RNA sequence: GUCAGGAACCCCAUAGCUAAAGCUAGGGGCUUGCUUCGGUAAGCCUACCUGACCAGCUUGAGGUUUGAAAGACAACCUACGUUACGAGUGAAAUGAGGUACGACAGGGUGCAUGCCAGCUCUGCCCGCUACGGUCAGCGAUUAAACAGAGGUACAAGGGUUAACUCAGUGUCGUUGGCGAUAAACCACUCGAUAACUUUAGCGAGGCACACAUUAC
Number, nucleotide and partner (000 for none) at each position: 001g053002u052003c051004a050005g049006g048007a000008a046009c000010c029011c028012c026013a000014u000015a000016g023017c022018u000019a000020a000021a000022g017023c016024u000025a000026g012027g000028g011029g010030c043031u042032u041033g040034c000035u000036u000037c000038g000039g000040u033041a032042a031043g030044c000045c000046u008047a000048c006049c005050u004051g003052a002053c001054c000055a000056g202057c201058u200059u000060g198061a078062g077063g076064u075065u074066u000067g000068a000069a000070a000071g000072a000073c000074a065075a064076c063077c062078u061079a000080c000081g196082u195083u194084a193085c000086g190087a189088g188089u187090g186091a000092a000093a000094u000095g000096a000097g000098g131099u130100a000101c000102g125103a000104c123105a122106g121107g120108g119109u118110g000111c000112a000113u208114g207115c206116c205117a000118g109119c108120u107121c106122u105123g104124c000125c102126c000127g000128c000129u000130a099131c098132g000133g178134u177135c176136a175137g174138c173139g172140a171141u170142u000143a000144a000145a169146c168147a000148g166149a165150g000151g164152u163153a000154c000155a160156a000157g000158g000159g000160u155161u000162a000163a152164c151165u149166c148167a000168g146169u145170g141171u140172c139173g138174u137175u136176g135177g134178c133179g000180a000181u000182a000183a000184a000185c000186c090187a089188c088189u087190c086191g000192a000193u084194a083195a082196c081197u000198u060199u000200a058201g057202c056203g000204a000205g116206g115207c114208a113209c000210a000211c000212a000213u000214u000215a000216c000
RNA: HNH endonuclease-associated RNA and ORF (HEARO) RNA
Organism: Dictyobacter aurantiacus